[Rfam]
RNA sequence: UUGUUUGCGGAUGGAGCAUCAUCAAGAUUCACAAAGUAAUCUUAGGGCAAUUGAACAAUGGUGAAUACCAAUUAGCCCUUUGAAUAUAUAUAUGAGAAUCUUGAUGAUGCUGCAGCGGCAAUUUA
Number, nucleotide and partner (000 for none) at each position: 001u000002u000003g000004u000005u000006u000007g000008c000009g000010g116011a000012u114013g113014g000015a111016g110017c109018a108019u107020c106021a105022u104023c103024a102025a101026g100027a099028u098029u097030c096031a000032c094033a093034a000035a000036g000037u000038a000039a000040u000041c000042u000043u000044a000045g000046g000047g000048c000049a000050a000051u000052u000053g000054a000055a000056c000057a000058a000059u000060g000061g000062u000063g000064a000065a000066u000067a000068c000069c000070a000071a000072u000073u000074a000075g000076c000077c000078c000079u000080u000081u000082g000083a000084a000085u000086a000087u000088a000089u000090a000091u000092a000093u033094g032095a000096g030097a029098a028099u027100c026101u025102u024103g023104a022105u021106g020107a019108u018109g017110c016111u015112g000113c013114a012115g000116c010117g000118g000119c000120a000121a000122u000123u000124u000125a000
A member of the RNA family "mir-172 microRNA precursor family" from Hibiscus trionum, 125 nucleotides long.
Rfam links the family to the GO terms miRNA-mediated post-transcriptional gene silencing and RISC complex.
The literature on the family includes a 2002 paper in Curr Biol by Park et al., "CARPEL FACTORY, a Dicer homolog, and HEN1, a novel protein, act in microRNA metabolism in Arabidopsis thaliana".
The match comes from Rfam's covariance-model search (89 bits).